This 97-nucleotide RNA sequence from Papaver nudicaule belongs to the Rfam family "Small nucleolar RNA snR60/Z15/Z230/Z193/J17". A search with the family's covariance model found it, with a score of 59 bits.
[Rfam]
RNA sequence: GGAGUUGAAUUGAUGAUUCUUGCAUAGUUCAGAUGAGAUCUGUCUUUGAUUAAUCUCUAAACAGAAAUCAGUCUUUCGCUCAUAUCUGAUCUACUCC
Number, nucleotide and partner (000 for none) at each position: 001g000002g000003a000004g094005u093006u000007g091008a090009a000010u000011u000012g000013a000014u000015g000016a000017u000018u000019c000020u000021u000022g000023c000024a000025u000026a000027g000028u000029u000030c000031a000032g000033a000034u000035g000036a000037g000038a000039u000040c000041u000042g000043u000044c000045u000046u000047u000048g000049a000050u000051u000052a000053a000054u000055c000056u000057c000058u000059a000060a000061a000062c000063a000064g000065a000066a000067a000068u000069c000070a000071g000072u000073c000074u000075u000076u000077c000078g000079c000080u000081c000082a000083u000084a000085u000086c000087u000088g000089a000090u008091c007092u000093a005094c004095u000096c000097c000
Clan: SNORD77 clan. By type it is a C/D-box small nucleolar RNA. Pairs were carried over by alignment from the consensus structure. A reference for the family is Lowe and Eddy (1999), "A computational screen for methylation guide snoRNAs in yeast", Science.